[Rfam]
RNA sequence: GAGUCCGGCGCGCCGCACGGCGAUCCGGGGCCGGGGACCCAACCGACAUUGGGGUGAAUCGGCCGACCGCCCGUGAGGGCAAGGCCGUAGGGCACACCUUCCGUAGCACCUCCGCCCGAACCCGACAGCUGACUCGGUAGGCGGGUUACGGAAGGAGUG
Numbered sequence: 001g002a003g004u005c006c007g008g009c010g011c012g013c014c015g016c017a018c019g020g021c022g023a024u025c026c027g028g029g030g031c032c033g034g035g036g037a038c039c040c041a042a043c044c045g046a047c048a049u050u051g052g053g054g055u056g057a058a059u060c061g062g063c064c065g066a067c068c069g070c071c072c073g074u075g076a077g078g079g080c081a082a083g084g085c086c087g088u089a090g091g092g093c094a095c096a097c098c099u100u101c102c103g104u105a106g107c108a109c110c111u112c113c114g115c116c117c118g119a120a121c122c123c124g125a126c127a128g129c130u131g132a133c134u135c136g137g138u139a140g141g142c143g144g145g146u147u148a149c150g151g152a153a154g155g156a157g158u159g
Base pairs, nucleotide, nucleotide: 004029005028006027007026008025030138031137032136033135034134035133040051041050052123053122054121060087061086062085063084090117091116092115093114
Shown here is a 159-nucleotide sequence from Streptomyces naganishii, a member of the family "c-di-AMP riboswitch aptamer (ydaO/yuaA leader)".
The organism belongs to Streptomyces naganishii, within Bacteria.
This family represents a conserved RNA structure found upstream of the ydaO and yuaA genes in Bacillus subtilis and related genes in other bacteria.
A search with the family's covariance model found it, with a score of 61 bits.